[Rfam]
RNA sequence: AGGGCGGGAGCGGAAACGACCUGCACCUUGUAUAGUAGUCAUUUUAAAUAGAUUUAUAAUUCUGCCUGUAUCCAAGAAAGGACCGGGACAGAGGG
Numbered sequence: 001a002g003g004g005c006g007g008g009a010g011c012g013g014a015a016a017c018g019a020c021c022u023g024c025a026c027c028u029u030g031u032a033u034a035g036u037a038g039u040c041a042u043u044u045u046a047a048a049u050a051g052a053u054u055u056a057u058a059a060u061u062c063u064g065c066c067u068g069u070a071u072c073c074a075a076g077a078a079a080g081g082a083c084c085g086g087g088a089c090a091g092a093g094g095g
Stems, first nucleotide, its partner, number of pairs: 001028003004024005011018001062091003065087004071082003

Rfam assigns this 95-nucleotide RNA sequence from Bacillus sp. FJAT-27986 to the family "pan motif".
NCBI's taxonomy places the organism under Bacteria, Bacillota, Bacilli, Bacillaceae, Bacillus.
It scores 64 bits against the family's covariance model.